[Rfam]
RNA sequence: ACCUGGUUGAUCCUGCCAGUAGUCAUAUGCUUGUUUCAAAGAUUAAGCCAUGCAGGUGUAAGUAUAGAUCAAUUUACGAUGAAACUGCGAACAGCUCAUUAGAAUACUUAUAAAUAACACGGUGACUAUCAUUAUAUGGAUAUCCAUGGUAAUUCUGGAGUUAAUACAUGCCGAUAAUUUUGUUUACAAAAUUGCAGCCAUGAUUGAAUCGCCGACUUGGGUUCUGCCCAAUUGGAGGAUCCGCGUGGACUUGUGAAUCGCUUUUUGCGAUAGACCGUUUUAAUUUGUGACCUAUCAGCUUCGUCGGUAAGGUAUUGGCUUACCGAGGCGAUUACGGGUAACGGAGAAUUGGGGUUCGAUUCCGGAGAGGGAGCCUGAGAAACGGCUACCACAUCUAAGGGUGGCAGCAGGCGCGCAAAUUACUCAAUCCCGACACGGGGAGGUAGUGACAAAAAAUAACAGCACGAUGCUUUUGCUUCGUGACUGUAAUGAGCAAAAUUUACAAAAGUAUGUGAGUAUCAAUUGGAGGGCAAGUCUGGUGCCAGCAGCCGCGGUAAUUCCAGCUCCAAUAGCGUAUAUUAAAAUUGUUG
Numbered sequence: 001a002c003c004u005g006g007u008u009g010a011u012c013c014u015g016c017c018a019g020u021a022g023u024c025a026u027a028u029g030c031u032u033g034u035u036u037c038a039a040a041g042a043u044u045a046a047g048c049c050a051u052g053c054a055g056g057u058g059u060a061a062g063u064a065u066a067g068a069u070c071a072a073u074u075u076a077c078g079a080u081g082a083a084a085c086u087g088c089g090a091a092c093a094g095c096u097c098a099u100u101a102g103a104a105u106a107c108u109u110a111u112a113a114a115u116a117a118c119a120c121g122g123u124g125a126c127u128a129u130c131a132u133u134a135u136a137u138g139g140a141u142a143u144c145c146a147u148g149g150u151a152a153u154u155c156u157g158g159a160g161u162u163a164a165u166a167c168a169u170g171c172c173g174a175u176a177a178u179u180u181u182g183u184u185u186a187c188a189a190a191a192u193u194g195c196a197g198c199c200a201u202g203a204u205u206g207a208a209u210c211g212c213c214g215a216c217u218u219g220g221g222u223u224c225u226g227c228c229c230a231a232u233u234g235g236a237g238g239a240u241c242c243g244c245g246u247g248g249a250c251u252u253g254u255g256a257a258u259c260g261c262u263u264u265u266u267g268c269g270a271u272a273g274a275c276c277g278u279u280u281u282a283a284u285u286u287g288u289g290a291c292c293u294a295u296c297a298g299c300u301u302c303g304u305c306g307g308u309a310a311g312g313u314a315u316u317g318g319c320u321u322a323c324c325g326a327g328g329c330g331a332u333u334a335c336g337g338g339u340a341a342c343g344g345a346g347a348a349u350u351g352g353g354g355u356u357c358g359a360u361u362c363c364g365g366a367g368a369g370g371g372a373g374c375c376u377g378a379g380a381a382a383c384g385g386c387u388a389c390c391a392c393a394u395c396u397a398a399g400g401g402u403g404g405c406a407g408c409a410g411g412c413g414c415g416c417a418a419a420u421u422a423c424u425c426a427a428u429c430c431c432g433a434c435a436c437g438g439g440g441a442g443g444u445a446g447u448g449a450c451a452a453a454a455a456a457u458a459a460c461a462g463c464a465c466g467a468u469g470c471u472u473u474u475g476c477u478u479c480g481u482g483a484c485u486g487u488a489a490u491g492a493g494c495a496a497a498a499u500u501u502a503c504a505a506a507a508g509u510a511u512g513u514g515a516g517u518a519u520c521a522a523u524u525g526g527a528g529g530g531c532a533a534g535u536c537u538g539g540u541g542c543c544a545g546c547a548g549c550c551g552c553g554g555u556a557a558u559u560c561c562a563g564c565u566c567c568a569a570u571a572g573c574g575u576a577u578a579u580u581a582a583a584a585u586u587g588u589u590g
Base pairs, nucleotide, nucleotide: 003019004018005017006016007015021580022579023578025577026576027575028574029573030572031571034454035453036452040447041414047412048411049410051409052408053407056088057087061086062085063084068080069079095367096366097365105289106288107287110284111283120277121276122275123274135170136169137168138167144160147157148156149155176193177192178191179190180189198248199247200246201245202244212235213234214233219228220227258270259269260268261267291338292337293336298329299328300327304326305325306324307323308322309321310320311319342364343363344362345361346357347356348355349354369390370389372387373386374385392403393402394401395400420445422444423443424442428440429439430438431437432436460486461485462484463482464481465480466479467478469476470475493513494512497509499507523569524568525567526566527565528564536563537562538561539560545552546551

The family of this 590-nucleotide part of an RNA from Gregarina sp. Phaedon/Daegwallyeong/2010 is "Eukaryotic small subunit ribosomal RNA".
The organism belongs to Gregarina, within Eukaryota.